A member of the RNA family "Small nucleolar RNA SNORD10" from Felis catus, 145 nucleotides long. The family has 22 seed sequences and 433 matches in Rfam 15.1. The organism belongs to Felis, within Eukaryota. Its family is annotated with RNA processing and nucleolus in the Gene Ontology. The family's RNA type in Rfam is C/D-box small nucleolar RNA.

[Rfam]
RNA sequence: GCUCUGUGAUGAACCCAUGCGUGUCAUCUGAGCCUGGCUUGGCUCCCCUGUCUUCUCGGCCCGGGGAGUGUUCUACUUCCCAGGCCUGUCGCCUGGCCUGGCAUGGGGGUCCCAGGCAAAGGAUCAGCUUUUGUAUUCUGAGAGC
Numbered sequence: 001g002c003u004c005u006g007u008g009a010u011g012a013a014c015c016c017a018u019g020c021g022u023g024u025c026a027u028c029u030g031a032g033c034c035u036g037g038c039u040u041g042g043c044u045c046c047c048c049u050g051u052c053u054u055c056u057c058g059g060c061c062c063g064g065g066g067a068g069u070g071u072u073c074u075a076c077u078u079c080c081c082a083g084g085c086c087u088g089u090c091g092c093c094u095g096g097c098c099u100g101g102c103a104u105g106g107g108g109g110u111c112c113c114a115g116g117c118a119a120a121g122g123a124u125c126a127g128c129u130u131u132u133g134u135a136u137u138c139u140g141a142g143a144g145c
Stems, first nucleotide, its partner, number of pairs: 001145004045108004049103004